[Rfam]
Rfam assigns this 125-nucleotide RNA sequence from Danio rerio to the family "Small nucleolar RNA SNORA71". The source organism's lineage runs through Eukaryota, Chordata, Teleostei, Otophysi and Danio. The family has 40 seed sequences and 1,805 matches in Rfam 15.1. Rfam links the family to the GO terms nucleolus and RNA processing. For this family Rfam cites "The family of box ACA small nucleolar RNAs is defined by an evolutionarily conserved secondary structure and ubiquitous sequence elements essential for RNA accumulation" (Ganot et al., Genes Dev, 1997).

RNA sequence: ACCUGUUUCGAAAGUGACCGUGGUGUGUGUGGUCUCCAGGUCAUUGAUAAAACAGGAAGAGGAAGUGAAAGUGUUUCCCGUGUGUGCUGGACUCUGUUCCUGACAGACCCUGAAUCUUUCACACA
Numbered sequence: 001a002c003c004u005g006u007u008u009c010g011a012a013a014g015u016g017a018c019c020g021u022g023g024u025g026u027g028u029g030u031g032g033u034c035u036c037c038a039g040g041u042c043a044u045u046g047a048u049a050a051a052a053c054a055g056g057a058a059g060a061g062g063a064a065g066u067g068a069a070a071g072u073g074u075u076u077c078c079c080g081u082g083u084g085u086g087c088u089g090g091a092c093u094c095u096g097u098u099c100c101u102g103a104c105a106g107a108c109c110c111u112g113a114a115u116c117u118u119u120c121a122c123a124c125a
Stems, first nucleotide, its partner, number of pairs: 002056007013045007022037002025034001065122007082108002085105002087102001089100003